[Rfam]
RNA sequence: CACGGUGGUAGUUUCCUCCGUGGCACGCUGGUUACGCUUUCAAGGGAGCCUGACUCUGUCACAUAUACUAGAUAGGAACUGGCAAGGCUUGACAGGAGAUUGGUUCCCACAUGU
Numbered sequence: 001c002a003c004g005g006u007g008g009u010a011g012u013u014u015c016c017u018c019c020g021u022g023g024c025a026c027g028c029u030g031g032u033u034a035c036g037c038u039u040u041c042a043a044g045g046g047a048g049c050c051u052g053a054c055u056c057u058g059u060c061a062c063a064u065a066u067a068c069u070a071g072a073u074a075g076g077a078a079c080u081g082g083c084a085a086g087g088c089u090u091g092a093c094a095g096g097a098g099a100u101u102g103g104u105u106c107c108c109a110c111a112u113g114u
Base pairs, nucleotide, nucleotide: 005062006061007060008059009058010057011056022050023049024048026046028044029043031041075107076106077105078104079103080102081089082088083087